[Rfam]
RNA sequence: UAAAUCGUGGAGAACCCUUUCAAUCAAGUAAUGUAAUGAUUCAAGGGGUUCUCGUAA
Numbered sequence: 001u002a003a004a005u006c007g008u009g010g011a012g013a014a015c016c017c018u019u020u021c022a023a024u025c026a027a028g029u030a031a032u033g034u035a036a037u038g039a040u041u042c043a044a045g046g047g048g049u050u051c052u053c054g055u056a057a
Stems, first nucleotide, its partner, number of pairs: 010053011022041004
This 57-nucleotide RNA sequence from Medicago suffruticosa belongs to the Rfam family "Plastid-ccsA-ndhD-1 3UTR RNA". Rfam 15.1 lists 1,322 matches to the family in 557 species. On this family, see Richter et al., Plant Commun 2023: "Retrograde signaling in plants: A critical review focusing on the GUN pathway and beyond". The family is grouped with related families in Rfam's "Plastid-ccsA_ndhD 3UTR RNA clan". Plastid-ccsA-ndhD-1 is a non-coding RNA (ncRNA) recognised in plastids. It was found in the three prime untranslated region (3UTR) of ccsA and ndhD genes, its 3UTR location suggests a role in transcript maturation.